[Rfam]
RNA sequence: GGAGUCGGCCGGGCGGUCGCUGUAGUCGUGCUGUAUGCCGGCUAUGGAGGAAAGUCCGGGCUCCACAGGGCAGGGUGCCAGGUAACGCCUGGGGGGCGCGAGUCUACGGAAAGUGCAACAGAAAGCAUACCGCCUAAGCACCGCAAGGUGCCGGUAAGGGUGAAAUGGUGCGGUAAGAGCGCACCGCGCCGGUGGCAACAUGCGGCGGCAAGGUAAACCCCACCCGGAGCAAGGCCAAAUAGGGGAACAAUGGUGCGGCCCGCACUGUUCCCGGGUAGGCUGCAUGAGGUGUGUGGCGACGCACAUCCCAGAUGAAUGACUGCUCUCGACAGAACCCGGCUUACAGGCCGACUCCAAUU
Numbered sequence: 001g002g003a004g005u006c007g008g009c010c011g012g013g014c015g016g017u018c019g020c021u022g023u024a025g026u027c028g029u030g031c032u033g034u035a036u037g038c039c040g041g042c043u044a045u046g047g048a049g050g051a052a053a054g055u056c057c058g059g060g061c062u063c064c065a066c067a068g069g070g071c072a073g074g075g076u077g078c079c080a081g082g083u084a085a086c087g088c089c090u091g092g093g094g095g096g097c098g099c100g101a102g103u104c105u106a107c108g109g110a111a112a113g114u115g116c117a118a119c120a121g122a123a124a125g126c127a128u129a130c131c132g133c134c135u136a137a138g139c140a141c142c143g144c145a146a147g148g149u150g151c152c153g154g155u156a157a158g159g160g161u162g163a164a165a166u167g168g169u170g171c172g173g174u175a176a177g178a179g180c181g182c183a184c185c186g187c188g189c190c191g192g193u194g195g196c197a198a199c200a201u202g203c204g205g206c207g208g209c210a211a212g213g214u215a216a217a218c219c220c221c222a223c224c225c226g227g228a229g230c231a232a233g234g235c236c237a238a239a240u241a242g243g244g245g246a247a248c249a250a251u252g253g254u255g256c257g258g259c260c261c262g263c264a265c266u267g268u269u270c271c272c273g274g275g276u277a278g279g280c281u282g283c284a285u286g287a288g289g290u291g292u293g294u295g296g297c298g299a300c301g302c303a304c305a306u307c308c309c310a311g312a313u314g315a316a317u318g319a320c321u322g323c324u325c326u327c328g329a330c331a332g333a334a335c336c337c338g339g340c341u342u343a344c345a346g347g348c349c350g351a352c353u354c355c356a357a358u359u
Stems, first nucleotide, its partner, number of pairs: 001355010011344001012324007020047009052342003056339005061229004068261004073225005078092005093107001094105004108220002113218002115214002130159002132155003138151005167185006186209001187207005192201003233281004243272006252266005288307008
Background:
Bacterial RNase P class A: a 359-nucleotide sequence from Tenderia electrophaga. The match comes from Rfam's covariance-model search (340 bits). By type it is a ribozyme. NCBI's taxonomy places the organism under Bacteria, Gammaproteobacteria, Tenderiales (SeqCode), Tenderiaceae (SeqCode), Tenderia (SeqCode). Its Rfam clan is "RNaseP clan".